The family of this 83-nucleotide RNA from Triticum aestivum is "mir-166 microRNA precursor family". The family has 31 seed sequences and 2,599 matches in Rfam 15.1. Its family is annotated with miRNA-mediated post-transcriptional gene silencing and RISC complex in the Gene Ontology. On this family, see Reinhart et al., Genes Dev 2002: "MicroRNAs in plants". The source organism's lineage runs through Eukaryota, Streptophyta, Streptophytina, Triticinae and Triticum. Rfam describes the family as follows. This family represents the plant microRNA (miRNA) precursor mir-166. The base pairs follow the family's consensus structure, which was predicted with PFOLD.
RNA sequence: UUUGUGGGGAACGUUGGCUGGCUCGAGGCAUCCUUGCCGACGGCGCGGGUAGAGGCGUCGGACCAGGCUUCAUUCCUUUCAAA
Number, nucleotide and partner (000 for none) at each position: 001u083002u082003u081004g080005u000006g078007g077008g076009g075010a074011a073012c000013g071014u000015u000016g068017g000018c066019u065020g064021g063022c000023u000024c060025g059026a058027g000028g000029c000030a000031u000032c000033c000034u000035u000036g000037c000038c000039g000040a000041c000042g000043g000044c000045g000046c000047g000048g000049g000050u000051a000052g000053a000054g000055g000056c000057g000058u026059c025060g024061g000062a000063c021064c020065a019066g018067g000068c016069u000070u000071c013072a000073u011074u010075c009076c008077u007078u006079u000080c004081a003082a002083a001